The family of this 594-nucleotide part of an RNA from Puccinia sorghi is "Eukaryotic large subunit ribosomal RNA". Rfam links the family to the GO terms ribosome and structural constituent of ribosome. The match comes from Rfam's covariance-model search (3330 bits).

RNA sequence: CGGGGAAAGAAGACCCUGUUGAGCUUGACUCUAGUUUGACAUUGUGAAAAGACAUAGAGGGUGUAGAAUAAGUGGGAGCGUAAGCGCCAGUGAAAUACCACUACCUUUAUCGUCUUUUUACUUAUUCAAUGAAGCAGAGCUGGGAUUAACAUCCCACUUUUUAGCAUUAAGGUCCUUUUUGGGCUGAUCUGGGUUGAAGACAUUGUCAGGUGGGGAGUUUGGCUGGGGCGGCACAUCUGUUAAAUAAUAACGCAGGUGUCCUAAGGGGGACUCAUUGAGAACAGAAAUCUCAAGUAGAACAAAAGGGUAAAAGUCCCCUUGAUUUUGAUUUUCAGUGUGAAUACAAACCAUGAAAGUGUGGCCUAUCGAUCCUUUAGUCCUUUAGAAUUUAAAGCUAGAGGUGCCAGAAAAGUUACCACAGGGAUAACUGGCUUGUGGCAGCCAAGCGUUCAUAGCGACGUUGCUUUUUGAUCCUUCGAUGUCGGCUCUUCCUAUCAUACCGAAGCAGAAUUCGGUAAGCGUUGGAUUGUUCACCCACUAAUAGGGAACGUGAGCUGGGUUUAGACCGUCGUGAGACAGGUUAGUUUUACCCUA
Numbered sequence: 001c002g003g004g005g006a007a008a009g010a011a012g013a014c015c016c017u018g019u020u021g022a023g024c025u026u027g028a029c030u031c032u033a034g035u036u037u038g039a040c041a042u043u044g045u046g047a048a049a050a051g052a053c054a055u056a057g058a059g060g061g062u063g064u065a066g067a068a069u070a071a072g073u074g075g076g077a078g079c080g081u082a083a084g085c086g087c088c089a090g091u092g093a094a095a096u097a098c099c100a101c102u103a104c105c106u107u108u109a110u111c112g113u114c115u116u117u118u119u120a121c122u123u124a125u126u127c128a129a130u131g132a133a134g135c136a137g138a139g140c141u142g143g144g145a146u147u148a149a150c151a152u153c154c155c156a157c158u159u160u161u162u163a164g165c166a167u168u169a170a171g172g173u174c175c176u177u178u179u180u181g182g183g184c185u186g187a188u189c190u191g192g193g194u195u196g197a198a199g200a201c202a203u204u205g206u207c208a209g210g211u212g213g214g215g216a217g218u219u220u221g222g223c224u225g226g227g228g229c230g231g232c233a234c235a236u237c238u239g240u241u242a243a244a245u246a247a248u249a250a251c252g253c254a255g256g257u258g259u260c261c262u263a264a265g266g267g268g269g270a271c272u273c274a275u276u277g278a279g280a281a282c283a284g285a286a287a288u289c290u291c292a293a294g295u296a297g298a299a300c301a302a303a304a305g306g307g308u309a310a311a312a313g314u315c316c317c318c319u320u321g322a323u324u325u326u327g328a329u330u331u332u333c334a335g336u337g338u339g340a341a342u343a344c345a346a347a348c349c350a351u352g353a354a355a356g357u358g359u360g361g362c363c364u365a366u367c368g369a370u371c372c373u374u375u376a377g378u379c380c381u382u383u384a385g386a387a388u389u390u391a392a393a394g395c396u397a398g399a400g401g402u403g404c405c406a407g408a409a410a411a412g413u414u415a416c417c418a419c420a421g422g423g424a425u426a427a428c429u430g431g432c433u434u435g436u437g438g439c440a441g442c443c444a445a446g447c448g449u450u451c452a453u454a455g456c457g458a459c460g461u462u463g464c465u466u467u468u469u470g471a472u473c474c475u476u477c478g479a480u481g482u483c484g485g486c487u488c489u490u491c492c493u494a495u496c497a498u499a500c501c502g503a504a505g506c507a508g509a510a511u512u513c514g515g516u517a518a519g520c521g522u523u524g525g526a527u528u529g530u531u532c533a534c535c536c537a538c539u540a541a542u543a544g545g546g547a548a549c550g551u552g553a554g555c556u557g558g559g560u561u562u563a564g565a566c567c568g569u570c571g572u573g574a575g576a577c578a579g580g581u582u583a584g585u586u587u588u589a590c591c592c593u594a
Base pairs, nucleotide, nucleotide: 003593004592005591007588008587015422016421017420018419020418021417022414023413024412025411026410028218029217030216031215035210036209037208038207039206040205041204044121045120046119047118048117049116050115051114052113053112054110055109056108057107058106059105060104071102072101073100074099075098078085079084125198126197127196128195129194135191136190137189138188143154144153145152146151171185172184173183174182175181221234222232223231224230235257236256237255238254239253240252260361261360266318267317268316269315270314271313272298273297275293276292277291278290279289280288299308300307323347324346325345328342329341330340331339349358350357351356372400373399374398375397376396377395380394381393382392383391431472433470435469437465438464439463440462441461442460446456447455483558484556485555486554487553488550489547490546491545492544493543496521499516500515501514502513503512504511523537524536525535527533564582565581566580567579568577569576570575